The family of this 85-nucleotide RNA is "ZMP/ZTP riboswitch aptamer (pfl RNA motif)". Rfam's curators put it in the seed alignment.

RNA sequence: AGAUCCGUACAGGACUGACGGAAUCAAGUGGAGUCACCACGUGAACUGUACGGACCCUUUCAUGCCGACCGUCUGGGCAAGAGUA
Dot-bracket structure: ...(((((((((..(.[[[[[......((((.....))))..)..)))))))))........((((..]]]]]..))))......